[Rfam]
RNA sequence: CCAGCGUCCCUGCUAUGGAUCGUAGGAGCCGACCCCCUGGUCGUUGCCUGUGAUCCAUGCAGGUUCCUAGCUG
Numbered sequence: 001c002c003a004g005c006g007u008c009c010c011u012g013c014u015a016u017g018g019a020u021c022g023u024a025g026g027a028g029c030c031g032a033c034c035c036c037c038u039g040g041u042c043g044u045u046g047c048c049u050g051u052g053a054u055c056c057a058u059g060c061a062g063g064u065u066c067c068u069a070g071c072u073g
Base pairs, nucleotide, nucleotide: 002073003072004071005070009063010062011061012060013059015058016057017056018055019054020053021052022051023050024049025048026047030043031042032041033040034039
RNA: mir-9191 microRNA precursor family
Organism: Eptesicus fuscus